This 144-nucleotide RNA sequence from Holtiella tumoricola belongs to the Rfam family "PyrR binding site". NCBI's taxonomy places the organism under Bacteria, Bacillati, Lachnospirales, Cellulosilyticaceae, Holtiella. Rfam 15.1 lists 1,498 matches to the family in 930 species. It is annotated as a cis-regulatory element. The base pairs follow the family's consensus structure, which is taken from published work. About the family: This family represents the PyrR binding site and terminator structure.

[Rfam]
RNA sequence: AAGUCCUUUAAGAGUAGUCCGGGAGGCUAACAAGGAUGUACUGAUCGGUUUUUAUAAGUUUAUUAAAAUAGCGUAGUGUUACGUUAUUUUGGUCAUGUAUAUCUACAAGGUUUCUUAUGGACGAUUCCAUAAGAAACCUUUUUU
Number, nucleotide and partner (000 for none) at each position: 001a000002a000003g037004u036005c035006c034007u033008u032009u000010a000011a000012g000013a000014g000015u029016a028017g027018u026019c025020c000021g000022g000023g000024a000025g019026g018027c017028u016029a015030a000031c000032a008033a007034g006035g005036a004037u003038g000039u000040a000041c000042u000043g000044a000045u000046c000047g000048g000049u000050u000051u000052u000053u000054a000055u000056a000057a000058g000059u000060u000061u000062a093063u092064u091065a090066a089067a088068a087069u086070a085071g084072c083073g082074u081075a080076g000077u000078g000079u000080u075081a074082c073083g072084u071085u070086a069087u068088u067089u066090u065091g064092g063093u062094c000095a000096u000097g000098u000099a000100u000101a000102u000103c000104u000105a000106c000107a000108a139109g138110g137111u136112u135113u134114c133115u132116u131117a130118u129119g128120g127121a126122c000123g000124a000125u000126u121127c120128c119129a118130u117131a116132a115133g114134a113135a112136a111137c110138c109139u108140u000141u000142u000143u000144u000